The family of this 95-nucleotide RNA sequence from Physcomitrium patens is "MIR535 microRNA precursor family". Rfam 15.1 lists 544 matches to the family in 108 species. A search with the family's covariance model found it, with a score of 78 bits. Taxonomically the source falls in Physcomitrium (Eukaryota, Embryophyta, Bryopsida, Funariales). The family's consensus secondary structure was predicted with RNAalifold.
RNA sequence: GCAUCUAGGUGACAACGAGAGAGAGCACGCUGGAAUGCACUCUUGUAAGAAGCAUGGGUAUGUUCUUGUGUGCCCUCUCCCGCUGUCGCCAAGUU
Numbered sequence: 001g002c003a004u005c006u007a008g009g010u011g012a013c014a015a016c017g018a019g020a021g022a023g024a025g026c027a028c029g030c031u032g033g034a035a036u037g038c039a040c041u042c043u044u045g046u047a048a049g050a051a052g053c054a055u056g057g058g059u060a061u062g063u064u065c066u067u068g069u070g071u072g073c074c075c076u077c078u079c080c081c082g083c084u085g086u087c088g089c090c091a092a093g094u095u
Base pairs, nucleotide, nucleotide: 010088011087012086013085014084016082017081020078021077023075025073026072027071028070029069030068032066033065034064